[Rfam]
RNA sequence: CACCUAACCCUGUCGGCUCCGGUCGGCAGGUAUGGUGAAAAAGACGAGUGAAGCGUAAAGACCCCAUCGUGGUGUUGCUUCACUCGCCGUACCGGGAAACCGGUAUGUCCGGCGCAAGUCGGA
Dot-bracket structure: ((((....(((((((((....)))))))))...)))).......(((((((((((.....((.((.....)).))))))))))))).((((((((....))))))))((((((....))))))
The family of this 123-nucleotide RNA is "LOOT RNA".